[Rfam]
Nucleotides: 145
Base pairs, nucleotide, nucleotide: 004075005074006073008070009069010068011067012066035060036059037058038057039056040055041054046051087138088137089136090135091134095129097127098126099125101123103121104120105119106118107117
Number, partner (000 for none) and nucleotide at each position: 001000a002000c003000u004075g005074g006073a007000a008070g009069c010068u011067g012066c013000u014000g015000a016000g017000a018000c019000c020000a021000g022000u023000u024000g025000g026000g027000a028000c029000c030000a031000g032000u033000c034000a035060u036059g037058g038057g039056c040055a041054a042000a043000a044000u045000u046051a047000a048000u049000a050000u051046u052000u053000u054041u055040u056039g057038u058037c059036c060035a061000c062000u063000g064000u065000u066012g067011c068010a069009g070008u071000c072000u073006u074005c075004c076000u077000a078000g079000a080000g081000c082000a083000a084000a085000g086000u087138g088137g089136a090135g091134g092000u093000c094000u095129c096000u097127g098126u099125c100000u101123g102000c103121u104120u105119u106118a107117g108000g109000a110000c111000a112000g113000c114000u115000g116000a117107c118106u119105a120104a121103a122000u123101c124000a125099g126098a127097u128000c129095g130000u131000u132000c133000c134091c135090c136089u137088c138087c139000u140000u141000a142000c143000a144000u145000g